[Rfam]
RNA sequence: UGACGGGGACCCGCACAAGCGGUGGAGCAUGUGGUUUAAUUCGAAGCAACGCGAAGAACCUUACCAAGUCUUGACAUCCCGAUGACAAGCGAUGUAAUGUCGUCUCUCUUCGGAGCAUCGGAGACAGGUGGUGCAUGGUUGUCGUCAGCUCGUGUCGUGAGAUGUUGGGUUAAGUCCCGCAACGAGCGCAACCCUUGUUCUUAGUAGCCAGCAGGUGAAGCUGGGCACUCUAAGGAGACUGCCGGGGUGAACCCGGAGGAAGGUGGGGAUGACGUCAAAUCAUCAUGCCCCUUAUGACUUGGGCUACACACGUGCUACAAUGGCGUAAACAAAGGGAGGCGAAGCCGUGAGGCCAAGCGAAUCCCAAAAAUAACGUCUCAGUUCGGAUUGUAGUCUGCAACUCGACUACAUGAAGCUGGAAUCGCUAGUAAUCGCAGAUCAGCAUGCUGCGGUGAAUACGUUCCCGGGUCUUGUACACACCGCCCGUCACACCAUGGGAGUUGGUAAUGCCCGAAGUCAGUGACCCAACCGCAAGGAGGGAGCUGCCGAAGGCAGGACUGAUAACUGGGGUGAAGUCGUAACAAGG
Numbered sequence: 001u002g003a004c005g006g007g008g009a010c011c012c013g014c015a016c017a018a019g020c021g022g023u024g025g026a027g028c029a030u031g032u033g034g035u036u037u038a039a040u041u042c043g044a045a046g047c048a049a050c051g052c053g054a055a056g057a058a059c060c061u062u063a064c065c066a067a068g069u070c071u072u073g074a075c076a077u078c079c080c081g082a083u084g085a086c087a088a089g090c091g092a093u094g095u096a097a098u099g100u101c102g103u104c105u106c107u108c109u110u111c112g113g114a115g116c117a118u119c120g121g122a123g124a125c126a127g128g129u130g131g132u133g134c135a136u137g138g139u140u141g142u143c144g145u146c147a148g149c150u151c152g153u154g155u156c157g158u159g160a161g162a163u164g165u166u167g168g169g170u171u172a173a174g175u176c177c178c179g180c181a182a183c184g185a186g187c188g189c190a191a192c193c194c195u196u197g198u199u200c201u202u203a204g205u206a207g208c209c210a211g212c213a214g215g216u217g218a219a220g221c222u223g224g225g226c227a228c229u230c231u232a233a234g235g236a237g238a239c240u241g242c243c244g245g246g247g248u249g250a251a252c253c254c255g256g257a258g259g260a261a262g263g264u265g266g267g268g269a270u271g272a273c274g275u276c277a278a279a280u281c282a283u284c285a286u287g288c289c290c291c292u293u294a295u296g297a298c299u300u301g302g303g304c305u306a307c308a309c310a311c312g313u314g315c316u317a318c319a320a321u322g323g324c325g326u327a328a329a330c331a332a333a334g335g336g337a338g339g340c341g342a343a344g345c346c347g348u349g350a351g352g353c354c355a356a357g358c359g360a361a362u363c364c365c366a367a368a369a370a371u372a373a374c375g376u377c378u379c380a381g382u383u384c385g386g387a388u389u390g391u392a393g394u395c396u397g398c399a400a401c402u403c404g405a406c407u408a409c410a411u412g413a414a415g416c417u418g419g420a421a422u423c424g425c426u427a428g429u430a431a432u433c434g435c436a437g438a439u440c441a442g443c444a445u446g447c448u449g450c451g452g453u454g455a456a457u458a459c460g461u462u463c464c465c466g467g468g469u470c471u472u473g474u475a476c477a478c479a480c481c482g483c484c485c486g487u488c489a490c491a492c493c494a495u496g497g498g499a500g501u502u503g504g505u506a507a508u509g510c511c512c513g514a515a516g517u518c519a520g521u522g523a524c525c526c527a528a529c530c531g532c533a534a535g536g537a538g539g540g541a542g543c544u545g546c547c548g549a550a551g552g553c554a555g556g557a558c559u560g561a562u563a564a565c566u567g568g569g570g571u572g573a574a575g576u577c578g579u580a581a582c583a584a585g586g
Stems, first nucleotide, its partner, number of pairs: 001477002003474003007471007015461002019425005024318001026316008034307002040055004064302007077124002079121005089103006106115003127291002130289004136285002138280003141276001143274002148187006154163003166179004193268004198236007208225002212223003239259002242256005322377005328371001334365003339358002344353003384415001389410007431453007480585001482582001485578002490572004495567003500562006508554004516547001518545004524540003529536002
A member of the RNA family "Bacterial small subunit ribosomal RNA" from Shuttleworthella satelles, 586 nucleotides of a longer RNA. Gene Ontology terms of the family: structural constituent of ribosome and ribosome. The family is grouped with related families in Rfam's "SSU clan". A search with the family's covariance model found it, with a score of 1570 bits.